RNA sequence: GGUAGCCAAAAAUAGUUGUGGGAUUCAGAGUAGGAUUGUCAAUUAUUCGUAGAUUCUGAAUCGCUGGAUCGUAUAAUCCAUCAAAUAGCAUUGCUUUUGCUACAAGAAAGAAAGCGCCAAUUCCCAACAAUACUAGAUGGAUACCCAGGAUAGUCGUCAUUUUGCCUGGAUUAUUCCA
Dot-bracket structure: .......................................................................................................................................(((((...((..(................)..)).)))))...
A member of the RNA family "Antisense RNA which regulates isiA expression" from Hydrocoleum sp. CS-953, 178 nucleotides long. The literature on the family includes a 2006 paper in Proc Natl Acad Sci U S A by Duhring et al., "An internal antisense RNA regulates expression of the photosynthesis gene isiA". Pairs were carried over by alignment from the consensus structure, which was predicted with PFOLD.